[Rfam]
Small nucleolar RNA SNORA72: a 135-nucleotide RNA sequence from Climacteris rufus.
RNA sequence: CUGCGAAUAUUCUCGCUGUCCUGAUGCUGCUGUGAUCAGGGGAGGCUAGACAUUCGCUACAGUACAACUGUGCAUUGUGUCCUCCAGGACUAGACUGUUGUUCUAGUACUGGCUUUGAAAAUGCUAGUGACAGGU
Numbered sequence: 001c002u003g004c005g006a007a008u009a010u011u012c013u014c015g016c017u018g019u020c021c022u023g024a025u026g027c028u029g030c031u032g033u034g035a036u037c038a039g040g041g042g043a044g045g046c047u048a049g050a051c052a053u054u055c056g057c058u059a060c061a062g063u064a065c066a067a068c069u070g071u072g073c074a075u076u077g078u079g080u081c082c083u084c085c086a087g088g089a090c091u092a093g094a095c096u097g098u099u100g101u102u103c104u105a106g107u108a109c110u111g112g113c114u115u116u117g118a119a120a121a122u123g124c125u126a127g128u129g130a131c132a133g134g135u
Base pairs, nucleotide, nucleotide: 003057004056005055016044017043019041020040021039022038023037024036025035067128068127069126070125072124073123084112085111086110087109089107090106091105092104093103
Lineage of the source: Eukaryota > Craniata > Amniota > Climacteridae > Climacteris.
The family's RNA type in Rfam is H/ACA-box small nucleolar RNA.
For this family Rfam cites "The family of box ACA small nucleolar RNAs is defined by an evolutionarily conserved secondary structure and ubiquitous sequence elements essential for RNA accumulation" (Ganot et al., Genes Dev, 1997).
From the family's description: U72 is a member of the H/ACA class of snoRNAs.